RNA sequence: CAAAAAAUGAAUUGAAACACUUGUAUAAUAUUGGGAAUACGGCCCAAGAGUUUCUACCGGACCACCGUAAAUGGUCCGACUACGAGUGAUUGUAAACGAUAG
Numbered sequence: 001c002a003a004a005a006a007a008u009g010a011a012u013u014g015a016a017a018c019a020c021u022u023g024u025a026u027a028a029u030a031u032u033g034g035g036a037a038u039a040c041g042g043c044c045c046a047a048g049a050g051u052u053u054c055u056a057c058c059g060g061a062c063c064a065c066c067g068u069a070a071a072u073g074g075u076c077c078g079a080c081u082a083c084g085a086g087u088g089a090u091u092g093u094a095a096a097c098g099a100u101a102g
Stems, first nucleotide, its partner, number of pairs: 018088008029049001031047005058078007